Actinobacteria sRNA Ms_IGR-5: a 199-nucleotide RNA sequence from Nostocoides sp. HKS02. The literature on the family includes a 2013 paper in RNA by Li et al., "Identification of small RNAs in Mycobacterium smegmatis using heterologous Hfq".

[Rfam]
RNA sequence: ACACGGAAGGGAGGUGGUCCAAGAAGUGAUUUCUCAUUGGACGCGUGAGGUGACUGCGCGCUAGCGCACCUCGACUGCUCGAGGUGACGCCACCGGCGCAAUCCCCAGCAGUUCACCGCAGCCCGCGGGUCGUGCAGGUCGUCCCCUGCCCACGCCACGCCGCUCGAGUUCGGCACGGCAGGCCCGCGGGCUGUUCCAC
Numbered sequence: 001a002c003a004c005g006g007a008a009g010g011g012a013g014g015u016g017g018u019c020c021a022a023g024a025a026g027u028g029a030u031u032u033c034u035c036a037u038u039g040g041a042c043g044c045g046u047g048a049g050g051u052g053a054c055u056g057c058g059c060g061c062u063a064g065c066g067c068a069c070c071u072c073g074a075c076u077g078c079u080c081g082a083g084g085u086g087a088c089g090c091c092a093c094c095g096g097c098g099c100a101a102u103c104c105c106c107a108g109c110a111g112u113u114c115a116c117c118g119c120a121g122c123c124c125g126c127g128g129g130u131c132g133u134g135c136a137g138g139u140c141g142u143c144c145c146c147u148g149c150c151c152a153c154g155c156c157a158c159g160c161c162g163c164u165c166g167a168g169u170u171c172g173g174c175a176c177g178g179c180a181g182g183c184c185c186g187c188g189g190g191c192u193g194u195u196c197c198a199c
Stems, first nucleotide, its partner, number of pairs: 014057005059098004064093001066090002119193013134149005

Description: The organism belongs to Nostocoides, within Bacteria.